[Rfam]
RNA sequence: AUAAAAGCAGUGGUCUGUUGCCUAUGUGAGCAGUUCUCUUGUAACCUUCAGGGAUAGUAAAACCAAUGUUAUUGGGUGAACCUCUGUUUCUUUUUUGUGACUGAAGGUUCAGUAAAUGAUGGAACAUUU
Number, nucleotide and partner (000 for none) at each position: 001a000002u000003a000004a000005a048006a047007g046008c000009a000010g000011u000012g036013g000014u000015c033016u032017g031018u000019u000020g000021c000022c000023u000024a000025u000026g000027u000028g000029a000030g000031c017032a016033g015034u000035u000036c012037u000038c000039u000040u000041g000042u000043a000044a000045c000046c007047u006048u005049c000050a000051g000052g000053g000054a000055u000056a000057g000058u000059a000060a000061a000062a000063c122064c121065a120066a000067u118068g117069u116070u115071a000072u000073u000074g000075g000076g000077u111078g110079a109080a108081c107082c106083u105084c000085u000086g000087u000088u000089u000090c000091u000092u000093u000094u000095u000096u000097g000098u000099g000100a000101c000102u000103g000104a000105a083106g082107g081108u080109u079110c078111a077112g000113u000114a000115a070116a069117u068118g067119a000120u065121g064122g063123a000124a000125c000126a000127u000128u000129u000

Background:
This 129-nucleotide sequence from Cicer arietinum belongs to the Rfam family "Small nucleolar RNA snoR74". The family's consensus secondary structure was predicted with WAR. Rfam 15.1 lists 1,404 matches to the family in 223 species. Rfam classes the family as an H/ACA-box small nucleolar RNA. Taxonomically the source falls in Cicer (Eukaryota, rosids, fabids, Hologalegina).